[Rfam]
RNA sequence: CGGCGGGCCGCAGGCCGGAAACAGGCGGCGGUGGGUGCGUCCCACCUGAAAGG
Numbered sequence: 001c002g003g004c005g006g007g008c009c010g011c012a013g014g015c016c017g018g019a020a021a022c023a024g025g026c027g028g029c030g031g032u033g034g035g036u037g038c039g040u041c042c043c044a045c046c047u048g049a050a051a052g053g
Stems, first nucleotide, its partner, number of pairs: 007029005030046006